RNA: UnaL2 LINE 3' element
Organism: Coregonus sp. 'balchen'
Nucleotides: 054
Base pairs, nucleotide, nucleotide: 013043015040016039020036021035022034023033024032025031
Number, partner (000 for none) and nucleotide at each position: 001000u002000a003000u004000g005000c006000a007000c008000u009000u010000a011000a012000c013043u014000c015040u016039a017000a018000g019000u020036c021035g022034c023033u024032c025031u026000g027000g028000a029000u030000a031025a032024g033023a034022g035021u036020g037000u038000c039016u040015g041000c042000u043013a044000a045000a046000u047000g048000a049000c050000u051000a052000a053000a054000u